Source information
Rfam assigns this 119-nucleotide RNA from Glycine max to the family "MIR1520 microRNA precursor family". Its family is annotated with RISC complex and miRNA-mediated post-transcriptional gene silencing in the Gene Ontology.
RNA sequence: UUCUUAUUGGAUGAUGACGAUCAUGUGUCAUGUUCUGAUUGAUCAAUAAAAAUAACAAUGUAUUUCAUCUUCUAUGGAGUUGACAUCCAAUCAUAACAUGACAUGGGAAGUUAUCAUCG
Numbered sequence: 001u002u003c004u005u006a007u008u009g010g011a012u013g014a015u016g017a018c019g020a021u022c023a024u025g026u027g028u029c030a031u032g033u034u035c036u037g038a039u040u041g042a043u044c045a046a047u048a049a050a051a052a053u054a055a056c057a058a059u060g061u062a063u064u065u066c067a068u069c070u071u072c073u074a075u076g077g078a079g080u081u082g083a084c085a086u087c088c089a090a091u092c093a094u095a096a097c098a099u100g101a102c103a104u105g106g107g108a109a110g111u112u113a114u115c116a117u118c119g
Base pairs, nucleotide, nucleotide: 021108022107025104026103029100030099031098033096034095036093038091039090040089